[Rfam]
RNA sequence: CUGGGGUAUGGUGACAUGUACCCGCAGACCUGGUCUGGCAUGCUGGUGGGUGCUCUUUGCGCUUUGGCCGGCGUGCUAACCAUCGCCAUGCCUGUCCCUGUCAUCGUCAACAAC
Numbered sequence: 001c002u003g004g005g006g007u008a009u010g011g012u013g014a015c016a017u018g019u020a021c022c023c024g025c026a027g028a029c030c031u032g033g034u035c036u037g038g039c040a041u042g043c044u045g046g047u048g049g050g051u052g053c054u055c056u057u058u059g060c061g062c063u064u065u066g067g068c069c070g071g072c073g074u075g076c077u078a079a080c081c082a083u084c085g086c087c088a089u090g091c092c093u094g095u096c097c098c099u100g101u102c103a104u105c106g107u108c109a110a111c112a113a114c
Base pairs, nucleotide, nucleotide: 002113004111008107009106010105011104013102014101015100016099018097020095021094037077038076039075040074049063050062051061
Potassium channel RNA editing signal: a 114-nucleotide sequence from Chanos chanos. The family's RNA type in Rfam is cis-regulatory element. The base pairs follow the family's consensus structure, which is taken from published work. NCBI's taxonomy places the organism under Eukaryota, Actinopteri, Osteoglossocephalai, Chanoidei, Chanos. Rfam's curators write: This family represents a group of sequences related to the human potassium channel Kv1.1 hairpin element which directs the efficient modification of an adenosine to inosine by an adenosine deaminase acting on RNA (ADAR).